About this RNA
The record is a 265-nucleotide RNA from Andreesenella acetica, which matches "Bacterial large signal recognition particle RNA" in Rfam. Lineage of the source: Bacteria > Bacillati > Clostridia > Peptostreptococcales > Andreesenella.
RNA sequence: CUGUGCUAGACGGGAAGGUAGCGGUGUCCUGUAACCUGCAAUCCGCUAUAGCAGGGUUGAAGUCCUCUUAGAGGUAUAUUGGUUGUAGGGCUGGCUUAGGUAAGUGAUGAUGAUAGUUGGGUCCUACGCAACGGAAAGUCAUGAACCCCGCCAGGUCCGGAAGGAAGCAACGGUAAGUGAUCCCUUUCGUGUGCCGUGGGGUAGCCUAACUUGAGUUAACUGCUUGAGUAACGCCUAUGACGGUAUGUCGAAGAGAGGUGCACAG
Numbered sequence: 001c002u003g004u005g006c007u008a009g010a011c012g013g014g015a016a017g018g019u020a021g022c023g024g025u026g027u028c029c030u031g032u033a034a035c036c037u038g039c040a041a042u043c044c045g046c047u048a049u050a051g052c053a054g055g056g057u058u059g060a061a062g063u064c065c066u067c068u069u070a071g072a073g074g075u076a077u078a079u080u081g082g083u084u085g086u087a088g089g090g091c092u093g094g095c096u097u098a099g100g101u102a103a104g105u106g107a108u109g110a111u112g113a114u115a116g117u118u119g120g121g122u123c124c125u126a127c128g129c130a131a132c133g134g135a136a137a138g139u140c141a142u143g144a145a146c147c148c149c150g151c152c153a154g155g156u157c158c159g160g161a162a163g164g165a166a167g168c169a170a171c172g173g174u175a176a177g178u179g180a181u182c183c184c185u186u187u188c189g190u191g192u193g194c195c196g197u198g199g200g201g202u203a204g205c206c207u208a209a210c211u212u213g214a215g216u217u218a219a220c221u222g223c224u225u226g227a228g229u230a231a232c233g234c235c236u237a238u239g240a241c242g243g244u245a246u247g248u249c250g251a252a253g254a255g256a257g258g259u260g261c262a263c264a265g
Stems, first nucleotide, its partner, number of pairs: 001265006009058003012030004017025001019023001035055005064258006073249005080243001082241008094229001096227006104220002106217003115211008123200006129191002132189005138181005148173003156165003